[Rfam]
RNA sequence: UCGGUGAUUUAGGUAGUUUCCUGUUGUUGGGAUCCACCUUUCUCUCUCGACAGCACGACACUGCCUUCAUUACUUC
Numbered sequence: 001u002c003g004g005u006g007a008u009u010u011a012g013g014u015a016g017u018u019u020c021c022u023g024u025u026g027u028u029g030g031g032a033u034c035c036a037c038c039u040u041u042c043u044c045u046c047u048c049g050a051c052a053g054c055a056c057g058a059c060a061c062u063g064c065c066u067u068c069a070u071u072a073c074u075u076c
Stems, first nucleotide, its partner, number of pairs: 003074006011066007019058001022055010
A member of the RNA family "mir-196 microRNA precursor family" from Loxodonta africana, 76 nucleotides long. The source organism's lineage runs through Eukaryota, Opisthokonta, Tetrapoda, Mammalia and Loxodonta. The family's consensus secondary structure was predicted with PFOLD. For this family Rfam cites "New microRNAs from mouse and human" (Lagos-Quintana et al., RNA, 2003). Gene Ontology terms of the family: gene silencing by miRNA and RISC complex.